Record summary: The record is a 207-nucleotide RNA sequence from Sphingomonas changbaiensis, which matches "permuted transfer-messenger RNA" in Rfam. A reference for the family is Zwieb et al. (2003), "tmRDB (tmRNA database)", Nucleic Acids Res. Lineage of the source: Bacteria > Pseudomonadati > Alphaproteobacteria > Sphingomonas > Sphingomonas changbaiensis. About the family: Bacterial tmRNA, also known as 10Sa RNA or SsrA, is named for its dual tRNA and mRNA-like properties. It scores 133 bits against the family's covariance model.
[Rfam]
RNA sequence: GGCGAUAAACUGCGGCGUGUCAUAGGCGCAGCGGACCCGGGGGCAGUACCCGGCGGCUCCACCAGAAGCUCGUUUCGACGGGUUCCUGACGGGGCCGAACCAGGAUCGACGUGUGUUGAAAAGCGCAGCUUUCGCUCGGAAUGGGACCACCGUGACGGCCCAUACACAAGUGCCAACGAUAACGAGGCGCUCGCGAUUGCGGCCUAA
Numbered sequence: 001g002g003c004g005a006u007a008a009a010c011u012g013c014g015g016c017g018u019g020u021c022a023u024a025g026g027c028g029c030a031g032c033g034g035a036c037c038c039g040g041g042g043g044c045a046g047u048a049c050c051c052g053g054c055g056g057c058u059c060c061a062c063c064a065g066a067a068g069c070u071c072g073u074u075u076c077g078a079c080g081g082g083u084u085c086c087u088g089a090c091g092g093g094g095c096c097g098a099a100c101c102a103g104g105a106u107c108g109a110c111g112u113g114u115g116u117u118g119a120a121a122a123g124c125g126c127a128g129c130u131u132u133c134g135c136u137c138g139g140a141a142u143g144g145g146a147c148c149a150c151c152g153u154g155a156c157g158g159c160c161c162a163u164a165c166a167c168a169a170g171u172g173c174c175a176a177c178g179a180u181a182a183c184g185a186g187g188c189g190c191u192c193g194c195g196a197u198u199g200c201g202g203c204c205u206a207a
Base pairs, nucleotide, nucleotide: 001136002135003134004133005132015126016125017124018123027115028114029113031112032111033110037053038052039051040050041049054097055096056095057094058093059092060091137152138151139150